This 181-nucleotide sequence from Vibrio genomosp. F6 belongs to the Rfam family "Lysine riboswitch aptamer". The family's consensus secondary structure is taken from published work. Riboswitches are metabolite binding domains within certain messenger RNAs that serve as precision sensors for their corresponding targets. The organism belongs to Vibrio genomosp. F6, within Bacteria.
RNA sequence: UCUUGCCGUAGAGGUGCAAUUACAAUCAGUAUCUGUUAUUGGGGUGAUGCCAAUGAAUAACAGUGAAAGGUGUAGUUGCCGAAGUAAGUCUGUAAAUUAAAACGGCUUGCUGGGGUUGUCAUCAAAUAGGGACAACACUGCCAUAGUCUUAUUUUUUAAACUAUGGAGCGCUACUGUAGGG
Numbered sequence: 001u002c003u004u005g006c007c008g009u010a011g012a013g014g015u016g017c018a019a020u021u022a023c024a025a026u027c028a029g030u031a032u033c034u035g036u037u038a039u040u041g042g043g044g045u046g047a048u049g050c051c052a053a054u055g056a057a058u059a060a061c062a063g064u065g066a067a068a069g070g071u072g073u074a075g076u077u078g079c080c081g082a083a084g085u086a087a088g089u090c091u092g093u094a095a096a097u098u099a100a101a102a103c104g105g106c107u108u109g110c111u112g113g114g115g116u117u118g119u120c121a122u123c124a125a126a127u128a129g130g131g132a133c134a135a136c137a138c139u140g141c142c143a144u145a146g147u148c149u150u151a152u153u154u155u156u157u158a159a160a161c162u163a164u165g166g167a168g169c170g171c172u173a174c175u176g177u178a179g180g181g
Stems, first nucleotide, its partner, number of pairs: 006176001008174004016079009033063007083111008093101001112139002115136006122129001141166007
Dot-bracket structure: .....(.((((....(((((((((........(((((((.................))))))).......)))))))))...((((((((..(.......)..))))))))((.((((((.(......).)))))).)).(((((((............)))))))....)))).).....